[Rfam]
RNA sequence: UUCUUAUCCAGAGAGGUGGAGGGACUGGCCCUGCGAAACCUCAGCAACCGGCAGAACGCUCUAGGCGUGCCAAGGUGCUAAAUCCAGCAAGCGAGCUUGGGAGAUGAGAA
Numbered sequence: 001u002u003c004u005u006a007u008c009c010a011g012a013g014a015g016g017u018g019g020a021g022g023g024a025c026u027g028g029c030c031c032u033g034c035g036a037a038a039c040c041u042c043a044g045c046a047a048c049c050g051g052c053a054g055a056a057c058g059c060u061c062u063a064g065g066c067g068u069g070c071c072a073a074g075g076u077g078c079u080a081a082a083u084c085c086a087g088c089a090a091g092c093g094a095g096c097u098u099g100g101g102a103g104a105u106g107a108g109a110a
Stems, first nucleotide, its partner, number of pairs: 001110008013042005021031003025087004043079004048075002050071004083102001088099004
RNA: SAM riboswitch aptamer (S box leader)